A member of the RNA family "mir-3473 microRNA precursor family" from Nannospalax galili, 79 nucleotides long. The base pairs follow the family's consensus structure, which was predicted with RNAalifold.
RNA sequence: ACCACUGAGCCAUCUCUCCAGCCCCAAGAAAAAUGUUUUAAAAGUAAACUAGAGGGGGCUGGAGAGAUGGCUCAGUGGU
Dot-bracket structure: .(((((((((((((((((((((((...............................))))))))))))))))))))))).